The record is a 76-nucleotide RNA sequence from Acyrthosiphon pisum, which matches "mir-29 microRNA precursor family" in Rfam. Rfam's curators write: This family represents the microRNA (miRNA) precursors mir-29. The literature on the family includes a 2001 paper in Cell by Ambros, "microRNAs: tiny regulators with great potential". The match comes from Rfam's covariance-model search (54 bits). The organism belongs to Acyrthosiphon, within Eukaryota. The family has 168 seed sequences and 3,328 matches in Rfam 15.1.
RNA sequence: UGAAUACUGGUUUCGUAUUGGUGCAUAGAAGUAUUAAUUUUGUAACUUGUCUAGCACCAUUUGAAACCAGUACUUA
Numbered sequence: 001u002g003a004a005u006a007c008u009g010g011u012u013u014c015g016u017a018u019u020g021g022u023g024c025a026u027a028g029a030a031g032u033a034u035u036a037a038u039u040u041u042g043u044a045a046c047u048u049g050u051c052u053a054g055c056a057c058c059a060u061u062u063g064a065a066a067c068c069a070g071u072a073c074u075u076a
Base pairs, nucleotide, nucleotide: 001076002075003074007070008069009068010067011066012065013064014063015062019059020058021057022056023055026053027052028051029050